J750 non-coding RNA (containing SLSL761 and SL783): a 113-nucleotide sequence.
[Rfam]
RNA sequence: AUACCCGUCGUUGGCGCCCCGGUUGGCGGAGUCGCCAGAGCUCUCGCACAUGGUGUGAGAGUCCUGGAGGACGGGAUAAAUUACGCAACAGGGAACUUGCCCGGUUGCUCCUU
Number, nucleotide and partner (000 for none) at each position: 001a077002u076003a000004c074005c073006c000007g072008u071009c070010g000011u000012u034013g033014g032015c031016g000017c029018c028019c026020c025021g000022g000023u000024u000025g020026g019027c000028g018029g017030a000031g015032u014033c013034g012035c067036c066037a065038g064039a000040g062041c061042u060043c059044u058045c057046g056047c055048a054049c053050a000051u000052g000053g049054u048055g047056u046057g045058a044059g043060a042061g041062u040063c000064c038065u037066g036067g035068a000069g000070g009071a008072c007073g005074g004075g000076a002077u001078a000079a000080a000081u000082u000083a000084c000085g108086c107087a106088a105089c104090a000091g102092g101093g100094a000095a000096c000097u000098u000099g000100c093101c092102c091103g000104g089105u088106u087107g086108c085109u000110c000111c000112u000113u000
The literature on the family includes a 2020 paper in Int J Mol Sci by Romero-Lopez and Berzal-Herranz, "The Role of the RNA-RNA Interactome in the Hepatitis C Virus Life Cycle".